[Rfam]
RNA sequence: CUCGGGGUGGGGGUACCUCAGCCUGGAUUGUGAGAGGGUGCAGGCCAGGCCAAAGGACCCCACCAGUGCACA
Numbered sequence: 001c002u003c004g005g006g007g008u009g010g011g012g013g014u015a016c017c018u019c020a021g022c023c024u025g026g027a028u029u030g031u032g033a034g035a036g037g038g039u040g041c042a043g044g045c046c047a048g049g050c051c052a053a054a055g056g057a058c059c060c061c062a063c064c065a066g067u068g069c070a071c072a
Stems, first nucleotide, its partner, number of pairs: 004069001006067001008065002010061005016055001018053001021050003025046002028043005
This 72-nucleotide RNA sequence from Myotis lucifugus belongs to the Rfam family "mir-9193 microRNA precursor family". The family's consensus secondary structure was predicted with RNAalifold. Taxonomically the source falls in Myotis (Eukaryota, Eumetazoa, Bilateria, Gnathostomata). The family has 2 seed sequences and 6,008 matches in Rfam 15.1.